Rfam assigns this 114-nucleotide RNA from Actinacidiphila glaucinigra to the family "TPP riboswitch aptamer (THI element)". Rfam links the family to the GO term thiamine pyrophosphate binding. It scores 61 bits against the family's covariance model.

RNA sequence: GGGAGCACUCGCGGGAGCCCGGCGCACCGGGCUGAGAGGGCGGCUGGAGCGGCCGCCGACCGUACGAACCUGAUCCGGGUCAUGCCGGCGAAGGGAGGAGCGGGAACAUCAUGC
Dot-bracket structure: .....(.(((((((..(((((......)))))......((((((((...))))))))..)))).....(((...((((......))))...)))...))).)............
NCBI's taxonomy places the organism under Bacteria, Bacillati, Actinomycetota, Kitasatosporales, Actinacidiphila.